[Rfam]
RNA sequence: AAUUGUAAAAAUGAUGAAUGAUUUUGGCUGAAGAGUUCUUGAUGACCAUAUUCAUCACCCAAGACUGAUAAAUAUUA
Dot-bracket structure: (.(..........................(((...)))................................).)....
Shown here is a 77-nucleotide sequence from Drosophila grimshawi, a member of the family "Small nucleolar RNA CD11". Lineage of the source: Eukaryota > Ecdysozoa > Allotriocarida > Ephydroidea > Hawaiian Drosophila.